RNA: tRNA
Organism: Petrocella atlantisensis
RNA sequence: GCGUGGUUAACUCAGCUGGUAGAGUGUUUCCUUGACGUGGAAGAAGUCAUGGGUUCGAGUCCCUUACCAUGCA
Numbered sequence: 001g002c003g004u005g006g007u008u009a010a011c012u013c014a015g016c017u018g019g020u021a022g023a024g025u026g027u028u029u030c031c032u033u034g035a036c037g038u039g040g041a042a043g044a045a046g047u048c049a050u051g052g053g054u055u056c057g058a059g060u061c062c063c064u065u066a067c068c069a070u071g072c073a
Stems, first nucleotide, its partner, number of pairs: 001072007010025004027043005049065001051063003